The family of this 56-nucleotide RNA from Corallococcus coralloides is "L17-Actino-Proteobacteria ribosomal protein leader". It is annotated as a cis-regulatory leader. On this family, see Eckert and Weinberg, BMC Microbiol 2020: "Discovery of 20 novel ribosomal leader candidates in bacteria and archaea". Pairs were carried over by alignment from the consensus structure, which is taken from published work.
[Rfam]
RNA sequence: GCGGCCCUGGUGUCGGGGCCGUCCUUCCCACCCGGUACCUGAUACGGCCGGAGUGG
Numbered sequence: 001g002c003g004g005c006c007c008u009g010g011u012g013u014c015g016g017g018g019c020c021g022u023c024c025u026u027c028c029c030a031c032c033c034g035g036u037a038c039c040u041g042a043u044a045c046g047g048c049c050g051g052a053g054u055g056g
Stems, first nucleotide, its partner, number of pairs: 001022009028056003032051005